[Rfam]
RNA sequence: CGGGCCGUGUACUCCCAGAUCGCCUCCGGAUCGGUGAUCGCCUGCUCGCCGAAGUAGGCACCGUCGGCCAGUACACCGAGGACCGCGUCGUCCCCGUACGGACCCGUGCCGAUCUUCUCGACCUUGCCGUGUGCGAGCAGGAACACCUCGUCGGCCUGGCUGCCGAAGGAGGCGAGCACGUCGCCCGGGUCGAACUCCCGCUGCUGGCAGCGCAGUGCGAGCUCGGCGAGCACCUCCGGGUCCUCGUAUGUGCGCAGUGCCGGCAGUUCGCCGAGCUCCGCGGGGAUGACCUGGACCCGGUCACCCGUCUUCACGAACGUCACGCGACCGUCGCCCACCGAGUAGCUGAGCCUGCGGUUCACGCGGUAUGUGCCGCCCUGCACGUUCACCCACGGCAGCAUGCGCAGCAGCCAUCGUGAGCUGAUCUCCUGCAUCUGCGGUGCGGACUUGGUCGUGGUGGCCAGGUUCCGCGCCGCGGAUGUGCCGAGACUCUUCUGCGGCUGAUCCU
Dot-bracket structure: ......(((.((...(.(.(.((.(...(.((..(((..((....(.((((..((...(.(((.((((...........(.((.(........).)).)........)))).....((((..(..((..(.((..((..((.(.....((....((.(((((..............))....))).))..))...)))..))..))..)..)).)..))))..))).)...)).(((..(((.((...(.((((.(((..((......))....))).))))).)).)))..)))..)))).)...))..))).)).)...).)).))(.(........).)...........((((..((((.....))))))))...)...)).))).((.((.(.((..(((.(.......))))...)).).)).)).....((((.(((((((((((.......)))))).))))).))))((..((.(..((......))..)))....)).
RNA: Saccharopolyspora sRNA 350